[Rfam]
RNA sequence: GAUCUAUGAUGCUAAUUAACGCAAUCGGUGAUGCAAGGGUUCAUCACACCAGUCUGAUGCUCAGAUGACAAACGUGCGUUGCUGAGAUC
Numbered sequence: 001g002a003u004c005u006a007u008g009a010u011g012c013u014a015a016u017u018a019a020c021g022c023a024a025u026c027g028g029u030g031a032u033g034c035a036a037g038g039g040u041u042c043a044u045c046a047c048a049c050c051a052g053u054c055u056g057a058u059g060c061u062c063a064g065a066u067g068a069c070a071a072a073c074g075u076g077c078g079u080u081g082c083u084g085a086g087a088u089c
Base pairs, nucleotide, nucleotide: 001089002088003087004086
RNA: small nucleolar RNA snoR114